[Rfam]
RNA sequence: ACUGUCCCUAGAAGCAUUGGAGGCGUGGCUGCUUUGCCACAUGUGGAUCAGAAGGUGACAGAGAGGAGAGAGGCUAUGUUCAGCAUUCUUACCCAUGAACGUCUGAAUGAUUACCAUAGCCUAACAUU
Numbered sequence: 001a002c003u004g005u006c007c008c009u010a011g012a013a014g015c016a017u018u019g020g021a022g023g024c025g026u027g028g029c030u031g032c033u034u035u036g037c038c039a040c041a042u043g044u045g046g047a048u049c050a051g052a053a054g055g056u057g058a059c060a061g062a063g064a065g066g067a068g069a070g071a072g073g074c075u076a077u078g079u080u081c082a083g084c085a086u087u088c089u090u091a092c093c094c095a096u097g098a099a100c101g102u103c104u105g106a107a108u109g110a111u112u113a114c115c116a117u118a119g120c121c122u123a124a125c126a127u128u
Stems, first nucleotide, its partner, number of pairs: 002061005007055003014048001021044001025040005068125001071122005077109002080106004084101001086099003
A member of the RNA family "Small nucleolar RNA SNORA17" from Mus musculus, 128 nucleotides long. From the family's description: snoRNA ACA 17 belongs to the H/ACA family of snoRNAs and is predicted to guide pseudouridylation of the 28S rRNA at positions U4659 and U4598. It shares the same host gene together with ACA43. NB This family has a high threshold value to exclude a large number of closely related sequences that do not appear to have conserved H and ACA boxes, and may be pseudogenes. The family has 53 seed sequences and 5,784 matches in Rfam 15.1. Its Rfam clan is "SNORA17 clan". Rfam links the family to the GO terms nucleolus and RNA processing. Rfam classes the family as an H/ACA-box small nucleolar RNA.